[Rfam]
Rfam assigns this 75-nucleotide RNA from Haemonchus placei to the family "mir-5928 microRNA precursor family". Taxonomically the source falls in Haemonchus (Eukaryota, Protostomia, Rhabditina, Strongyloidea).

RNA sequence: GGCACAAAUCUGAAGUAGGGUAGAUUUGUAAGGACAGCUGAUCUUACUAUUCCACUGUACUUCAAAACUGUGCAC
Numbered sequence: 001g002g003c004a005c006a007a008a009u010c011u012g013a014a015g016u017a018g019g020g021u022a023g024a025u026u027u028g029u030a031a032g033g034a035c036a037g038c039u040g041a042u043c044u045u046a047c048u049a050u051u052c053c054a055c056u057g058u059a060c061u062u063c064a065a066a067a068c069u070g071u072g073c074a075c
Stems, first nucleotide, its partner, number of pairs: 002073005009066001011064007019056003023052001026049001028047003032043002035040001
The match comes from Rfam's covariance-model search (63 bits).
Its family is annotated with miRNA-mediated post-transcriptional gene silencing and RISC complex in the Gene Ontology.